Shown here is a 150-nucleotide sequence from Parahoeflea olei, a member of the family "speF leader". The literature on the family includes a 2005 paper in Genome Biol by Corbino et al., "Evidence for a second class of S-adenosylmethionine riboswitches and other regulatory RNA motifs in alpha-proteobacteria". It is annotated as a cis-regulatory leader. Pairs were carried over by alignment from the consensus structure, which was predicted with RNAalifold.

RNA sequence: UGCCGGCUUUCCAACAGCCGGGGUUACUGAAGAGGCACACCUUCAUUGCCGGACGUGCGGUCGGGAUCUCCCUCCAAUCCAAGGCAGACAUGAGCGGAUCAUUGCCAUUCAGGCUGUGGUCCAUCGACGCAUCAAGCGUCCGCGCCGUUG
Numbered sequence: 001u002g003c004c005g006g007c008u009u010u011c012c013a014a015c016a017g018c019c020g021g022g023g024u025u026a027c028u029g030a031a032g033a034g035g036c037a038c039a040c041c042u043u044c045a046u047u048g049c050c051g052g053a054c055g056u057g058c059g060g061u062c063g064g065g066a067u068c069u070c071c072c073u074c075c076a077a078u079c080c081a082a083g084g085c086a087g088a089c090a091u092g093a094g095c096g097g098a099u100c101a102u103u104g105c106c107a108u109u110c111a112g113g114c115u116g117u118g119g120u121c122c123a124u125c126g127a128c129g130c131a132u133c134a135a136g137c138g139u140c141c142g143c144g145c146c147g148u149u150g
Stems, first nucleotide, its partner, number of pairs: 001023001003021006034050004057130003083095001104114003